[Rfam]
RNA sequence: CCUGGACUCUAAGUAGUAGUGCCGCAGGUAAGGGAAUUGGCAUUACCUGUUCACGCCUACUUAAAUUGCUGG
Dot-bracket structure: ((.(.(...(((((((..(....(((((((.............)))))))...)..)))))))...).).))
Numbered sequence: 001c002c003u004g005g006a007c008u009c010u011a012a013g014u015a016g017u018a019g020u021g022c023c024g025c026a027g028g029u030a031a032g033g034g035a036a037u038u039g040g041c042a043u044u045a046c047c048u049g050u051u052c053a054c055g056c057c058u059a060c061u062u063a064a065a066u067u068g069c070u071g072g
Stems, first nucleotide, its partner, number of pairs: 001072002004069001006067001010063007019054001024050007
Source information
mir-252 microRNA precursor family: a 72-nucleotide sequence from Penaeus vannamei. Pairs were carried over by alignment from the consensus structure, which was predicted with RNAalifold.